[Rfam]
RNA sequence: CAGGGUACCCUUUGACCCUUUUUAGUUCAAACAAAUGAACUAAAUUUUUAAAAAGUUGUGCUAUUUUGAAAUUUUAGUUCAUUUGGUUGAACUAAAGAGGAUCAAAGGGUACCCUG
Numbered sequence: 001c002a003g004g005g006u007a008c009c010c011u012u013u014g015a016c017c018c019u020u021u022u023u024a025g026u027u028c029a030a031a032c033a034a035a036u037g038a039a040c041u042a043a044a045u046u047u048u049u050a051a052a053a054a055g056u057u058g059u060g061c062u063a064u065u066u067u068g069a070a071a072u073u074u075u076a077g078u079u080c081a082u083u084u085g086g087u088u089g090a091a092c093u094a095a096a097g098a099g100g101a102u103c104a105a106a107g108g109g110u111a112c113c114c115u116g
Base pairs, nucleotide, nucleotide: 002115003114004113005112006111007110008109009108010107011106012105013104014103015102017100018099019098020097021096022095023094024093025092026091027090028089029088030087032085033084034083035082036081037080038079039078040077041076042075043074